This 57-nucleotide RNA sequence from Rivina humilis belongs to the Rfam family "Plastid-rps18 3UTR RNA". The sequence is in the family's curated seed alignment. About the family: Plastid rps18 is a non-coding RNA (ncRNA) present in plastids. It was identified as a short stem-loop motif in the 3 prime untranslate region (3UTR) of rps18 gene. NCBI's taxonomy places the organism under Eukaryota, Viridiplantae, Magnoliopsida, Mesangiospermae, Rivina. The family has 238 seed sequences and 1,462 matches in Rfam 15.1.
Nucleotides: 057
Stems, first nucleotide, its partner, number of pairs: 018037005024031002
Number, partner (000 for none) and nucleotide at each position: 001000u002000g003000c004000a005000a006000g007000u008000a009000u010000u011000u012000u013000a014000c015000g016000a017000u018037u019036a020035a021034g022033a023000a024031g025030c026000a027000a028000c029000c030025g031024u032000c033022u034021c035020u036019u037018g038000c039000g040000c041000a042000g043000a044000u045000c046000a047000u048000g049000u050000a051000a052000a053000a054000a055000u056000u057000u